A member of the RNA family "THF (Tetrahydrofolate) riboswitch aptamer" from Erysipelotrichaceae bacterium 5_2_54FAA, 99 nucleotides long. From the family's description: Tetrahydrofolate (THF) riboswitch was first reported for Ames et al. as an RNA motif in 5' untranslated (5'-UTR)regions of folate transport and biosynthesis genes in Firmicutes genomes. Pairs were carried over by alignment from the consensus structure, which is taken from published work. A search with the family's covariance model found it, with a score of 75 bits.

RNA sequence: AGCAGAGUAGAGAUUGAAGCGUUAAGUAUCCGCGAACGGGGAGUUGUCGUCGGGGCGAAAAGAGUUUCUCUUGCGAUUUCAGUCUUGCAUCCCGCUGUU
Numbered sequence: 001a002g003c004a005g006a007g008u009a010g011a012g013a014u015u016g017a018a019g020c021g022u023u024a025a026g027u028a029u030c031c032g033c034g035a036a037c038g039g040g041g042a043g044u045u046g047u048c049g050u051c052g053g054g055g056c057g058a059a060a061a062g063a064g065u066u067u068c069u070c071u072u073g074c075g076a077u078u079u080c081a082g083u084c085u086u087g088c089a090u091c092c093c094g095c096u097g098u099u
Base pairs, nucleotide, nucleotide: 001099002098003097004096005095010086011085012084013083014082015081016080017079018078019077020075021074022073026056027055029054030053031052032051033049034048035047039092040091041090043088060072061071062070063069